[Rfam]
RNA sequence: AACGACCGGUCGGACAUUCGCGUGCCCGGCCAUCAAGUGGAGGCUCCGAUCUCCCACCUGUUCGGCCCCUGGCCGACGGGUCCCGGUCAGACGGCUCCGGCCGGCGCGUCAGCGCCCGGCUUCCGCCGUCCGAUGCGCCCCGCGGAAUAACGCGGCGGUGCUCCCGGUUGUGAGGAGCCCGCCUGUGUGCCGUACGGGGCGUUUUUU
Numbered sequence: 001a002a003c004g005a006c007c008g009g010u011c012g013g014a015c016a017u018u019c020g021c022g023u024g025c026c027c028g029g030c031c032a033u034c035a036a037g038u039g040g041a042g043g044c045u046c047c048g049a050u051c052u053c054c055c056a057c058c059u060g061u062u063c064g065g066c067c068c069c070u071g072g073c074c075g076a077c078g079g080g081u082c083c084c085g086g087u088c089a090g091a092c093g094g095c096u097c098c099g100g101c102c103g104g105c106g107c108g109u110c111a112g113c114g115c116c117c118g119g120c121u122u123c124c125g126c127c128g129u130c131c132g133a134u135g136c137g138c139c140c141c142g143c144g145g146a147a148u149a150a151c152g153c154g155g156c157g158g159u160g161c162u163c164c165c166g167g168u169u170g171u172g173a174g175g176a177g178c179c180c181g182c183c184u185g186u187g188u189g190c191c192g193u194a195c196g197g198g199g200c201g202u203u204u205u206u207u
Stems, first nucleotide, its partner, number of pairs: 004088006012027002028082004034060002037057004041052002062076006090130005096119001098118003102114001137200006143192003151187003154183005160178005
Streptomyces RNA 1601: a 207-nucleotide RNA sequence from Actinacidiphila yanglinensis. Identified by deep sequencing of transcriptome at the end of exponential growth phase. Appears longer on northern blot than sequencing transcript. Streptomyces specific. A reference for the family is Vockenhuber et al. (2011), "Deep sequencing-based identification of small non-coding RNAs in Streptomyces coelicolor", RNA Biol. NCBI's taxonomy places the organism under Bacteria, Bacillati, Actinomycetota, Streptomycetaceae, Actinacidiphila.